[Rfam]
A member of the RNA family "L17-Actino-Proteobacteria ribosomal protein leader" from Sphaerisporangium album, 57 nucleotides long.
Taxonomically the source falls in Sphaerisporangium (Bacteria, Bacillati, Actinomycetota, Actinomycetes).
Pairs were carried over by alignment from the consensus structure, which is taken from published work.
The family's RNA type in Rfam is cis-regulatory leader.

Nucleotides: 057
Stems, first nucleotide, its partner, number of pairs: 001022005008015001027057003031054007
Number, partner (000 for none) and nucleotide at each position: 001022g002021g003020a004019g005018c006000a007000c008015c009000g010000a011000c012000u013000c014000c015008g016000a017000g018005g019004c020003u021002c022001c023000c024000u025000g026000c027057c028056c029055g030000a031054c032053u033052c034051c035050g036049g037048u038000a039000c040000c041000u042000g043000a044000c045000a046000c047000g048037g049036c050035c051034g052033g053032a054031g055029c056028g057027g